[Rfam]
RNA sequence: UAUUUAUUAUGACAGUCACAGCAUAAAGCACAGAUGGCUGUGACCUGAUUGCAGAAAAUA
Numbered sequence: 001u002a003u004u005u006a007u008u009a010u011g012a013c014a015g016u017c018a019c020a021g022c023a024u025a026a027a028g029c030a031c032a033g034a035u036g037g038c039u040g041u042g043a044c045c046u047g048a049u050u051g052c053a054g055a056a057a058a059u060a
Base pairs, nucleotide, nucleotide: 001060002059003058004057005056015044016043017042018041019040020039021038022037
Rfam assigns this 60-nucleotide sequence from Podiceps cristatus to the family "Selenocysteine insertion sequence 1". It is annotated as a cis-regulatory element. The organism belongs to Podiceps, within Eukaryota. Rfam's curators write: The incorporation of selenocysteine into a protein sequence is directed by an in-frame UGA codon (usually a stop codon) within the coding region of the mRNA. Selenoprotein mRNAs contain a conserved secondary structure in the 3' UTR that is required for the distinction of UGA stop from UGA selenocysteine. The selenocysteine insertion sequence (SECIS) is around 60 nt in length and adopts a hairpin structure which is sufficiently well-defined and conserved to act as a computational screen for selenoprotein genes.